Rfam assigns this 48-nucleotide RNA sequence from Pontibaca methylaminivorans to the family "Guanidine-II riboswitch aptamer (mini-ykkC)". Rfam links the family to the GO term regulation of gene expression. The family's consensus secondary structure is taken from published work. Rfam 15.1 lists 1,589 matches to the family in 1,229 species.

RNA sequence: UCGCGAGGACGACCUCCCUCUGCGGGCAGAUUGGCCGGGACGACCCGG
Numbered sequence: 001u002c003g004c005g006a007g008g009a010c011g012a013c014c015u016c017c018c019u020c021u022g023c024g025g026g027c028a029g030a031u032u033g034g035c036c037g038g039g040a041c042g043a044c045c046c047g048g
Stems, first nucleotide, its partner, number of pairs: 003018001005016004035048005
Background:
The source organism's lineage runs through Bacteria, Alphaproteobacteria, Rhodobacterales, Roseobacteraceae and Pontibaca.